[Rfam]
RNA sequence: AAGAUCUAUUUAGCGUAUAGUACGAUAGCAAUUAAUGAAUCAUCCAGGUAGUCCAAAUAAGGACUUUAUCUUUACCAGGGGAUAUGAUUUAAAAAGGCCGCUUAAUAAUAAGCGGCCUUUAUUGUCUAU
Numbered sequence: 001a002a003g004a005u006c007u008a009u010u011u012a013g014c015g016u017a018u019a020g021u022a023c024g025a026u027a028g029c030a031a032u033u034a035a036u037g038a039a040u041c042a043u044c045c046a047g048g049u050a051g052u053c054c055a056a057a058u059a060a061g062g063a064c065u066u067u068a069u070c071u072u073u074a075c076c077a078g079g080g081g082a083u084a085u086g087a088u089u090u091a092a093a094a095a096g097g098c099c100g101c102u103u104a105a106u107a108a109u110a111a112g113c114g115g116c117c118u119u120u121a122u123u124g125u126c127u128a129u
Stems, first nucleotide, its partner, number of pairs: 050065005095118010
Description
Rfam assigns this 129-nucleotide RNA sequence from Salmonella enterica to the family "Enterobacterial sRNA STnc340". Rfam classes the family as a small RNA. The sequence is in the family's curated seed alignment.